RNA sequence: GGCUAGUGCAGGCCAAUAUCGUGCACUGACGACAACGGGAUCCAUGUGAUCGCCGGGACCAAAGACUCCGCCGCAGGAGCGCUCAACCACUAUCCUUUACCGGACGAAGGUCGCAAGUGUGCCUGCGGCUUGGUUGUUU
Dot-bracket structure: .....(((((...........))))).........(((((((.....)))).)))..........((((......))))....(((((.....((......)).....((((((..........)))))).)))))...
Numbered sequence: 001g002g003c004u005a006g007u008g009c010a011g012g013c014c015a016a017u018a019u020c021g022u023g024c025a026c027u028g029a030c031g032a033c034a035a036c037g038g039g040a041u042c043c044a045u046g047u048g049a050u051c052g053c054c055g056g057g058a059c060c061a062a063a064g065a066c067u068c069c070g071c072c073g074c075a076g077g078a079g080c081g082c083u084c085a086a087c088c089a090c091u092a093u094c095c096u097u098u099a100c101c102g103g104a105c106g107a108a109g110g111u112c113g114c115a116a117g118u119g120u121g122c123c124u125g126c127g128g129c130u131u132g133g134u135u136g137u138u139u
Stems, first nucleotide, its partner, number of pairs: 006026005036055003039051004066079004084136005094103002109130006